[Rfam]
Shown here is a 96-nucleotide RNA sequence from Streptomyces sp. 846.5, a member of the family "che1 RNA". It scores 71 bits against the family's covariance model. By type it is a small RNA. The source organism's lineage runs through Bacteria, Actinomycetota, Actinomycetes, Kitasatosporales and Streptomyces.

RNA sequence: AGGACAGGGGGGUCUCCAGCCCCGAUCGGUGGAGCCUGUCCUCACACGGCCGGGCACCCAGCACGGCAUGUGGUUGUCACUCGGGGGUGAUCGCCG
Numbered sequence: 001a002g003g004a005c006a007g008g009g010g011g012g013u014c015u016c017c018a019g020c021c022c023c024g025a026u027c028g029g030u031g032g033a034g035c036c037u038g039u040c041c042u043c044a045c046a047c048g049g050c051c052g053g054g055c056a057c058c059c060a061g062c063a064c065g066g067c068a069u070g071u072g073g074u075u076g077u078c079a080c081u082c083g084g085g086g087g088u089g090a091u092c093g094c095c096g
Base pairs, nucleotide, nucleotide: 001042002041003040004039005038006037007036008035014034015033016032017031018030020028049067050066051065052064054062055061